[Rfam]
RNA sequence: CCCGAACGGCGGCCGAGGCUCUGGCAGCGAUGCCAGAGCGCGGGGGACCCAAUCGGAUCUGAUGGUCCCGGGGCGAGUCGCGGCCGGAGUGCCGCGUAGCGCCGUUGGCGCGAGCCCGUCAGCUAACCCCGUAGGCCGGAAGCAACAAGCGAU
Numbered sequence: 001c002c003c004g005a006a007c008g009g010c011g012g013c014c015g016a017g018g019c020u021c022u023g024g025c026a027g028c029g030a031u032g033c034c035a036g037a038g039c040g041c042g043g044g045g046g047a048c049c050c051a052a053u054c055g056g057a058u059c060u061g062a063u064g065g066u067c068c069c070g071g072g073g074c075g076a077g078u079c080g081c082g083g084c085c086g087g088a089g090u091g092c093c094g095c096g097u098a099g100c101g102c103c104g105u106u107g108g109c110g111c112g113a114g115c116c117c118g119u120c121a122g123c124u125a126a127c128c129c130c131g132u133a134g135g136c137c138g139g140a141a142g143c144a145a146c147a148a149g150c151g152a153u
Stems, first nucleotide, its partner, number of pairs: 011137004018039009040132006050070001071117003079096004099111004